[Rfam]
RNA sequence: UUGCUGUGAUGAUAACCCAUUUGGUUUCGCUGUCUACUGAUGUGCAGUGGGGACAGUUCCACUUGGCUGUCUGAGCAG
Numbered sequence: 001u002u003g004c005u006g007u008g009a010u011g012a013u014a015a016c017c018c019a020u021u022u023g024g025u026u027u028c029g030c031u032g033u034c035u036a037c038u039g040a041u042g043u044g045c046a047g048u049g050g051g052g053a054c055a056g057u058u059c060c061a062c063u064u065g066g067c068u069g070u071c072u073g074a075g076c077a078g
Stems, first nucleotide, its partner, number of pairs: 001078004